A member of the RNA family "SAM (S-adenosyl methionine) riboswitch aptamer" from Motilibacter peucedani, 114 nucleotides long. About the family: SAM-IV is a mRNA element that regulates gene expression via direct sensing of S-adenosylmethionine (SAM or AdoMet). The family is grouped with related families in Rfam's "SAM clan". A search with the family's covariance model found it, with a score of 97 bits. The organism belongs to Motilibacter, within Bacteria. The family's consensus secondary structure is taken from published work.
RNA sequence: GGUCAUGAGCGCCAGCGACAAGCCCCGGCUCGCUGGCCGGCAACCCUCCGCCACGGUGGGGUGCUCCGGGUGACGACCAGGCGGGCCGCGCAGGGCGGUCGGCAAGCGUGGUCC
Numbered sequence: 001g002g003u004c005a006u007g008a009g010c011g012c013c014a015g016c017g018a019c020a021a022g023c024c025c026c027g028g029c030u031c032g033c034u035g036g037c038c039g040g041c042a043a044c045c046c047u048c049c050g051c052c053a054c055g056g057u058g059g060g061g062u063g064c065u066c067c068g069g070g071u072g073a074c075g076a077c078c079a080g081g082c083g084g085g086c087c088g089c090g091c092a093g094g095g096c097g098g099u100c101g102g103c104a105a106g107c108g109u110g111g112u113c114c
Stems, first nucleotide, its partner, number of pairs: 001078004009038001011037006021030002039065003044061003048056002081103002084100006